RNA sequence: CAAUAAUCGCGUUUUCCUCAAGGGAGGUCGGCACAUUCCUGUCGGUUGUAGUGUUUUGCGAUACGCUAUAACGGAAGGGGGUGUUGCCUAUGUCUGUUUUUGAGACAAUGGUCAUCAUGAUCGCUUUCGCAACACUCGUUGUGACGAUUUUAGACCACAAAAAAUAGACCUCCCUUGGUUUAUCAGCCGGUGAGGUCUAUUCUUCACUAGCGCUGACCCCUCUUGAAGGGGAAGCGAUUCAUUGCUGGCCGAAGAUAUGACUGUAUCUUCG
Dot-bracket structure: ((((.(((.(....((.(((((((.(.(....(((.((((.....................................))))))).......(((..(........((..........)).......................)..)))..................).)..)))))))......((...............))...........))((((.......))))..).)))..)))).....(((((((((....)))))))))

The family of this 271-nucleotide RNA sequence from Lentibacillus sp. CBA3610 is "BsrG".
For this family Rfam cites "One antitoxin--two functions: SR4 controls toxin mRNA decay and translation" (Jahn and Brantl, Nucleic Acids Res, 2013).
Rfam describes the family as follows. bsrE, bsrG and bsrH pair through intermolecular interactions with antisense sRNAs. They form type I toxin/antitoxin system that includes an mRNA encoding for a short, toxic peptide (bsrE, bsrG and bsrH) and an antitoxin that is comprised of an antisense RNA. bsrG encodes a 39-amino-acid toxin, and the 180 nucleotide antisense sRNA called SR4 acts as the antitoxin (they overlap by 123 nucleotides). SR4 interaction with the 3'UTR of bsrG RNA promotes bsrG degradation and inhibits its translation. BsrG interferes with cell envelope biosynthesis, causes membrane invaginations and delocalisation of the cell wall synthesis and initiates autolysis. bsrE RNA encodes 30 amino-acid toxin peptide. Its antitoxin gene, SR5 overlaps by 112 nucleotides at the 3' end of bsrE. SR5 also overlaps bsrG from nucleotide 163 to 52 (Rfam overlap check). The antitoxin SR5 promotes bsrE degradation but unlike SR4 it does not directly inhibits toxin mRNA translation.
It is annotated as a small RNA.
The source organism's lineage runs through Bacteria, Bacillati, Bacilli, Caryophanales and Lentibacillus.
The base pairs follow the family's consensus structure, which was predicted with WAR.
It scores 72 bits against the family's covariance model.